[Rfam]
Nucleotides: 075
Stems, first nucleotide, its partner, number of pairs: 042061007
Number, partner (000 for none) and nucleotide at each position: 001000g002000u003000g004000a005000u006000u007000u008000u009000u010000u011000c012000a013000u014000a015000g016000u017000a018000u019000u020000a021000g022000a023000u024000u025000u026000a027000a028000g029000g030000u031000u032000a033000a034000c035000a036000a037000a038000g039000a040000u041000u042061g043060g044059u045058a046057g047056u048055a049000a050000g051000g052000c053000g054000u055048u056047a057046c058045u059044a060043c061042c062000u063000u064000u065000c066000g067000c068000g069000u070000u071000u072000u073000a074000u075000a
Rfam assigns this 75-nucleotide RNA sequence from Paludibacter propionicigenes to the family "Bacteroidetes FopS (family of paralogous sRNAs)". From the family's description: The RNA-binding protein RbpB and BTncRNA_FopS sRNA are involved in the post-transcription regulation of polysaccharide utilisation loci (PUL). FopS sRNAs function as post-transcriptional repressors by binding to the vicinity of the start codon of the first mRNA of target PUL polycistrons, typically corresponding to the cognate SusC homolog, impeding translation of the respective glycan transporter. Rfam classes the family as a small RNA. On this family, see Ruttiger et al., Nat Commun 2025: "The global RNA-binding protein RbpB is a regulator of polysaccharide utilization in Bacteroides thetaiotaomicron". Rfam links the family to the GO term sRNA-mediated gene silencing. The base pairs follow the family's consensus structure, which is taken from published work. The organism belongs to Paludibacter propionicigenes, within Bacteria.